[Rfam]
Rfam assigns this 87-nucleotide sequence to the family "Small nucleolar RNA snoR109". Pairs were carried over by alignment from the consensus structure, which was predicted with WAR. The family has 6 seed sequences and 680 matches in Rfam 15.1. Its family is annotated with nucleolus and RNA processing in the Gene Ontology. On this family, see Marker et al., Curr Biol 2002: "Experimental RNomics: identification of 140 candidates for small non-messenger RNAs in the plant Arabidopsis thaliana".
RNA sequence: UGGCUGUAGCUAUAUUAAAUCGAAGAAUCUUACUGGCCGGUUAUUGUGACUCUGUCGAUAAAUCUGCUUACCGAGUUUCUCACAUUU
Numbered sequence: 001u002g003g004c005u006g007u008a009g010c011u012a013u014a015u016u017a018a019a020u021c022g023a024a025g026a027a028u029c030u031u032a033c034u035g036g037c038c039g040g041u042u043a044u045u046g047u048g049a050c051u052c053u054g055u056c057g058a059u060a061a062a063u064c065u066g067c068u069u070a071c072c073g074a075g076u077u078u079c080u081c082a083c084a085u086u087u
Stems, first nucleotide, its partner, number of pairs: 024080004029075002035068003039064004043059004